Shown here is an 87-nucleotide RNA from Musa balbisiana, a member of the family "Plastid-rpl20 3UTR RNA". The source organism's lineage runs through Eukaryota, Streptophyta, Mesangiospermae, Liliopsida and Musa. About the family: Plastid rpl20 is a non-coding RNA (ncRNA) recognised in plastids. It was found in the three prime untranslated region (3UTR) of rpl20 gene, it presence in the 3UTR region sugest a role in transcript maduration. It scores 56 bits against the family's covariance model. It is annotated as a cis-regulatory element.
[Rfam]
RNA sequence: ACCGAAUUCUCCGUAGAAGGAACUGCCGGGAAAAUAGAAUAAAAAUCAAUUAAGAUAGGUAAUAGGAAUGAACGAAUAUGUUUGCAU
Numbered sequence: 001a002c003c004g005a006a007u008u009c010u011c012c013g014u015a016g017a018a019g020g021a022a023c024u025g026c027c028g029g030g031a032a033a034a035u036a037g038a039a040u041a042a043a044a045a046u047c048a049a050u051u052a053a054g055a056u057a058g059g060u061a062a063u064a065g066g067a068a069u070g071a072a073c074g075a076a077u078a079u080g081u082u083u084g085c086a087u
Base pairs, nucleotide, nucleotide: 007032008031009030011029012028013026014025015024016023070083071082072081073080